[Rfam]
RNA: mir-71 microRNA precursor family
RNA sequence: AAACGGUGAAAGACAUGGGUAGUGAGACGCUGUAUUAAGGUCGUAUCACUAUUCUGUUUUUCACCUUUUG
Numbered sequence: 001a002a003a004c005g006g007u008g009a010a011a012g013a014c015a016u017g018g019g020u021a022g023u024g025a026g027a028c029g030c031u032g033u034a035u036u037a038a039g040g041u042c043g044u045a046u047c048a049c050u051a052u053u054c055u056g057u058u059u060u061u062c063a064c065c066u067u068u069u070g
Stems, first nucleotide, its partner, number of pairs: 008062008017054003021050005027044003